[Rfam]
RNA: Bacterial small subunit ribosomal RNA, nucleotides 886 to 1485
Organism: bacterium SCGC AG-212-C10
RNA sequence: UGACGGGGGCCCGCACAAGCAGCGGAGCGUGUGGUUUAAUUCGAUGAUACGCGAAGAACCUCACCCAGGUUUGACAUGCAUGUGGUACAGAGGUGAAAGCCGACGGACCUUUCGGGGAGCAUGCACAGGUGUUGCACGGCCGUCGUCAGCUCGUGCCGUGAGGUGUUGGGUUAAGUCCCGCAACGAGCGCAACCCCUGUCGCCAGUUGUAUUUUUCUGGCGAGACUGCCGAGAAAACCUCGGAGGAAGGAGGGGACGAUGUCAGGUCAGCGUGGCCCUUACGCCUGGGGCUACACACACGCUACAAUGGGUGGUACAACGGGCAGCCAAGCCGCGAGGCGGAGCUAAUCCCAUCAAAGCCAUCCUCAGUUCGGAUUGCAGGCUGAAACCCGCCUGCAUGAAGCCGGAGUUGCUAGUAAACGCAGGUCAGCAUUACUGCGUUGAAUACGUUCCCGGGCCUUGUACACACCGCCCGUCACGUCAUGAAAGUUGGUAACACCUGAAGCCGGUGGGCUAACCGCAAGGAGGCAGCCGUCGAGGGUGGGACCAGCGAUUGGGACGAAGUCGUAACAAGGUAGCCGUAGCGGAAGCUGCGGCUGGA
Numbered sequence: 001u002g003a004c005g006g007g008g009g010c011c012c013g014c015a016c017a018a019g020c021a022g023c024g025g026a027g028c029g030u031g032u033g034g035u036u037u038a039a040u041u042c043g044a045u046g047a048u049a050c051g052c053g054a055a056g057a058a059c060c061u062c063a064c065c066c067a068g069g070u071u072u073g074a075c076a077u078g079c080a081u082g083u084g085g086u087a088c089a090g091a092g093g094u095g096a097a098a099g100c101c102g103a104c105g106g107a108c109c110u111u112u113c114g115g116g117g118a119g120c121a122u123g124c125a126c127a128g129g130u131g132u133u134g135c136a137c138g139g140c141c142g143u144c145g146u147c148a149g150c151u152c153g154u155g156c157c158g159u160g161a162g163g164u165g166u167u168g169g170g171u172u173a174a175g176u177c178c179c180g181c182a183a184c185g186a187g188c189g190c191a192a193c194c195c196c197u198g199u200c201g202c203c204a205g206u207u208g209u210a211u212u213u214u215u216c217u218g219g220c221g222a223g224a225c226u227g228c229c230g231a232g233a234a235a236a237c238c239u240c241g242g243a244g245g246a247a248g249g250a251g252g253g254g255a256c257g258a259u260g261u262c263a264g265g266u267c268a269g270c271g272u273g274g275c276c277c278u279u280a281c282g283c284c285u286g287g288g289g290c291u292a293c294a295c296a297c298a299c300g301c302u303a304c305a306a307u308g309g310g311u312g313g314u315a316c317a318a319c320g321g322g323c324a325g326c327c328a329a330g331c332c333g334c335g336a337g338g339c340g341g342a343g344c345u346a347a348u349c350c351c352a353u354c355a356a357a358g359c360c361a362u363c364c365u366c367a368g369u370u371c372g373g374a375u376u377g378c379a380g381g382c383u384g385a386a387a388c389c390c391g392c393c394u395g396c397a398u399g400a401a402g403c404c405g406g407a408g409u410u411g412c413u414a415g416u417a418a419a420c421g422c423a424g425g426u427c428a429g430c431a432u433u434a435c436u437g438c439g440u441u442g443a444a445u446a447c448g449u450u451c452c453c454g455g456g457c458c459u460u461g462u463a464c465a466c467a468c469c470g471c472c473c474g475u476c477a478c479g480u481c482a483u484g485a486a487a488g489u490u491g492g493u494a495a496c497a498c499c500u501g502a503a504g505c506c507g508g509u510g511g512g513c514u515a516a517c518c519g520c521a522a523g524g525a526g527g528c529a530g531c532c533g534u535c536g537a538g539g540g541u542g543g544g545a546c547c548a549g550c551g552a553u554u555g556g557g558a559c560g561a562a563g564u565c566g567u568a569a570c571a572a573g574g575u576a577g578c579c580g581u582a583g584c585g586g587a588a589g590c591u592g593c594g595g596c597u598g599g600a
Stems, first nucleotide, its partner, number of pairs: 001465002003462003007459007015449002019412005024304001026302008034293002040055004064288007077125007088105001092101003108117003128277002131275004137271002139266003142262001144260002149188006155164003167180004194254004199222007225245002228242005308364007320351003325344002330339003371402001376397007418441007468573001470570001473566002478560004483555003488550006496542004504535001506533004512528003517524002575598010